A member of the RNA family "ffh sRNA" from Stappia taiwanensis, 52 nucleotides long. Taxonomically the source falls in Stappia (Bacteria, Alphaproteobacteria, Hyphomicrobiales, Stappiaceae). For this family Rfam cites "Identification of candidate structured RNAs in the marine organism 'Candidatus Pelagibacter ubique'" (Meyer et al., BMC Genomics, 2009). Pairs were carried over by alignment from the consensus structure, which is taken from published work. By type it is a small RNA.
RNA sequence: GAUCCCGGAGGUUCCCACCCGACAGCGCGAUGCGCCCUCGGGUGUCGUUCCG
Numbered sequence: 001g002a003u004c005c006c007g008g009a010g011g012u013u014c015c016c017a018c019c020c021g022a023c024a025g026c027g028c029g030a031u032g033c034g035c036c037c038u039c040g041g042g043u044g045u046c047g048u049u050c051c052g
Stems, first nucleotide, its partner, number of pairs: 016044007025035004